Notes
A member of the RNA family "Guanidine-I riboswitch aptamer" from Hydrogenophaga crocea, 109 nucleotides long. The organism belongs to Hydrogenophaga, within Bacteria. It scores 92 bits against the family's covariance model.
[Rfam]
RNA sequence: CUUGAUGACCGCUAGGGUUCCGGGCCGGUGCGCCACACACCGGCCGCCUGGUCCGAGAGCGGUCGGCCACGAUCGCGUGGCUCCACGGAGGGACAAAAGCCCGGGAGAA
Numbered sequence: 001c002u003u004g005a006u007g008a009c010c011g012c013u014a015g016g017g018u019u020c021c022g023g024g025c026c027g028g029u030g031c032g033c034c035a036c037a038c039a040c041c042g043g044c045c046g047c048c049u050g051g052u053c054c055g056a057g058a059g060c061g062g063u064c065g066g067c068c069a070c071g072a073u074c075g076c077g078u079g080g081c082u083c084c085a086c087g088g089a090g091g092g093a094c095a096a097a098a099g100c101c102c103g104g105g106a107g108a109a
Base pairs, nucleotide, nucleotide: 007064008063009062010061011060012059015054016053020051021050022048023045024044025043026042027041028040029039030038065082066081067080068079069078070077071076084104086107090102091101092100